[Rfam]
Nucleotides: 389
Base pairs, nucleotide, nucleotide: 008162009161010160011159012158013157014156015155018150019149020148021147023053024052025051026050027049028048054109055108056107057106058105062102063101064100069096070095071094072093073092074089075088076087077086078085079084111145112144113143119137120136121135122134168284169283170282171281172280173279174278288387289386290385291384292383293309294308297305314379315378316377317376319373320372321371323366324365331359332358333357335356338353339352340351341350342349
Number, partner (000 for none) and nucleotide at each position: 001000g002000a003000g004000u005000u006000u007000g008162g009161g010160c011159a012158u013157u014156g015155c016000a017000a018150c019149a020148g021147u022000a023053g024052u025051a026050g027049a028048a029000u030000a031000u032000a033000g034000u035000a036000c037000g038000a039000g040000a041000g042000g043000a044000a045000c046000a047000c048028u049027u050026c051025u052024a053023c054109c055108g056107g057106a058105u059000a060000a061000u062102u063101g064100g065000u066000a067000u068000u069096u070095g071094c072093c073092c074089u075088u076087u077086g078085c079084u080000g081000a082000g083000c084079a085078g086077c087076a088075a089074g090000u091000g092073g093072g094071g095070c096069g097000a098000c099000g100064c101063u102062a103000u104000c105058a106057u107056c108055c109054g110000c111145u112144g113143g114000a115000u116000u117000a118000c119137g120136g121135c122134u123000g124000a125000a126000c127000g128000c129000c130000u131000c132000u133000a134122a135121g136120c137119c138000a139000g140000a141000a142000u143113c144112c145111a146000u147021g148020c149019u150018g151000g152000a153000a154000a155015g156014c157013a158012a159011u160010g161009c162008c163000u164000g165000c166000u167000u168284u169283u170282c171281u172280g173279c174278a175000c176000c177000a178000u179000u180000g181000a182000g183000u184000a185000c186000a187000a188000a189000u190000a191000g192000c193000g194000c195000c196000c197000c198000c199000g200000u201000g202000c203000g204000c205000c206000a207000a208000u209000a210000c211000u212000a213000g214000a215000g216000c217000g218000c219000g220000g221000c222000u223000c224000c225000u226000g227000c228000u229000g230000c231000c232000c233000c234000a235000g236000c237000g238000c239000u240000a241000a242000c243000u244000g245000c246000u247000g248000g249000g250000g251000c252000a253000g254000u255000g256000c257000g258000c259000c260000g261000c262000c263000a264000a265000g266000u267000u268000c269000c270000a271000c272000g273000c274000c275000u276000u277000g278174u279173g280172c281171a282170g283169a284168a285000a286000a287000u288387g289386a290385a291384u292383c293309c294308c295000u296000u297305g298000c299000a300000g301000a302000c303000g304000a305297c306000u307000u308294g309293g310000a311000a312000a313000u314379a315378g316377a317376c318000c319373g320372g321371g322000u323366a324365c325000u326000g327000u328000a329000a330000a331359c332358u333357g334000u335356a336000g337000a338353g339352u340351g341350g342349c343000c344000u345000u346000g347000u348000u349342g350341c351340u352339a353338c354000g355000a356335u357333c358332a359331g360000c361000u362000g363000a364000g365324g366323u367000u368000u369000a370000g371321c372320c373319c374000g375000c376317g377316u378315c379314u380000u381000u382000a383292g384291a385290u386289u387288u388000g389000u

A member of the RNA family "Eukaryotic large subunit ribosomal RNA" from Coemansia brasiliensis, 389 nucleotides of a longer RNA. A search with the family's covariance model found it, with a score of 3000 bits. The family is grouped with related families in Rfam's "LSU clan". Taxonomically the source falls in Coemansia (Eukaryota, Opisthokonta, Fungi, Kickxellomycetes). Pairs were carried over by alignment from the consensus structure, which is taken from published work.